[Rfam]
This 104-nucleotide RNA from a Moraxellaceae bacterium belongs to the Rfam family "t44 RNA". Rfam describes the family as follows. This family consists of a number of bacterial RNA genes of between 135 and 170 bases in length. Taxonomically the source falls in Moraxellaceae (Bacteria, Pseudomonadati, Gammaproteobacteria, Moraxellales). By type it is a small RNA.

RNA sequence: UGUUCAGACGGUUAAUCCCACACAUAUGUCGACACAUUGAUCUGGGUGCUUUUUUGUUUUUAAAAAACCGAAAAGUGGACAAUGAGGACAUAUGGAGGCCUAAC
Numbered sequence: 001u002g003u004u005c006a007g008a009c010g011g012u013u014a015a016u017c018c019c020a021c022a023c024a025u026a027u028g029u030c031g032a033c034a035c036a037u038u039g040a041u042c043u044g045g046g047u048g049c050u051u052u053u054u055u056g057u058u059u060u061u062a063a064a065a066a067a068c069c070g071a072a073a074a075g076u077g078g079a080c081a082a083u084g085a086g087g088a089c090a091u092a093u094g095g096a097g098g099c100c101u102a103a104c
Base pairs, nucleotide, nucleotide: 023094024093025092026091027090028089029088030087035084036083037082038081039080041079042078043077048076049075050074051073052072053071054070
Dot-bracket structure: ......................((((((((....(((((.(((....(((((((...............)))))))))))))))..))))))))..........